Source information:
The record is a 249-nucleotide RNA from Medicago truncatula, which matches "MIR2655 microRNA precursor family" in Rfam. It scores 172 bits against the family's covariance model.

RNA sequence: CCCUAAAAUAUUAAAAGUUUCGUUUUGGUCCCUUAACUUAUUUUUUGGUUUCGUUUUGGUCCCUUAACUCUUCCUCCGUCAACCACUUUGGUCCUUUAUGUUAGGAUGAAUGUAUUAGAGUUAAGGACCAAAACGAAAUCAAAAAAUAAGUUAAGUGACCAAAACGAAACCAAAAAAUAAGUUAAGGGACCAAAACAAAACCAAAAAAUAAAUUAAGGGACCAAAACGAAACUUUUAAUAGUUAAGGGA
Numbered sequence: 001c002c003c004u005a006a007a008a009u010a011u012u013a014a015a016a017g018u019u020u021c022g023u024u025u026u027g028g029u030c031c032c033u034u035a036a037c038u039u040a041u042u043u044u045u046u047g048g049u050u051u052c053g054u055u056u057u058g059g060u061c062c063c064u065u066a067a068c069u070c071u072u073c074c075u076c077c078g079u080c081a082a083c084c085a086c087u088u089u090g091g092u093c094c095u096u097u098a099u100g101u102u103a104g105g106a107u108g109a110a111u112g113u114a115u116u117a118g119a120g121u122u123a124a125g126g127a128c129c130a131a132a133a134c135g136a137a138a139u140c141a142a143a144a145a146a147u148a149a150g151u152u153a154a155g156u157g158a159c160c161a162a163a164a165c166g167a168a169a170c171c172a173a174a175a176a177a178u179a180a181g182u183u184a185a186g187g188g189a190c191c192a193a194a195a196c197a198a199a200a201c202c203a204a205a206a207a208a209u210a211a212a213u214u215a216a217g218g219g220a221c222c223a224a225a226a227c228g229a230a231a232c233u234u235u236u237a238a239u240a241g242u243u244a245a246g247g248g249a
Stems, first nucleotide, its partner, number of pairs: 002247003006243002023226003027222003031218006038211006045204003